[Rfam]
RNA sequence: UGUGUAUCAUGGUCAAAUGCUCAGACUCCUUGGUGGCUGCUUAUGUACCAUGAAUGUUUGAACAUGUGCUGUGGUGUCUG
Numbered sequence: 001u002g003u004g005u006a007u008c009a010u011g012g013u014c015a016a017a018u019g020c021u022c023a024g025a026c027u028c029c030u031u032g033g034u035g036g037c038u039g040c041u042u043a044u045g046u047a048c049c050a051u052g053a054a055u056g057u058u059u060g061a062a063c064a065u066g067u068g069c070u071g072u073g074g075u076g077u078c079u080g
Base pairs, nucleotide, nucleotide: 004077005076006075007074008073009072010071011070012069014068015067017065018064019063021061022060023059024058025057026056027054029052033051034050035049036048038047039046040045